Rfam assigns this 29-nucleotide RNA to the family "L19-Flavobacteria ribosomal protein leader". A reference for the family is Eckert and Weinberg (2020), "Discovery of 20 novel ribosomal leader candidates in bacteria and archaea", BMC Microbiol. It is annotated as a cis-regulatory leader. The base pairs follow the family's consensus structure, which is taken from published work. It is one of the family's seed sequences.
RNA sequence: CAACCGCUGGCGUAAUUACGUGGAUGUUG
Numbered sequence: 001c002a003a004c005c006g007c008u009g010g011c012g013u014a015a016u017u018a019c020g021u022g023g024a025u026g027u028u029g
Stems, first nucleotide, its partner, number of pairs: 001029004008024001010021004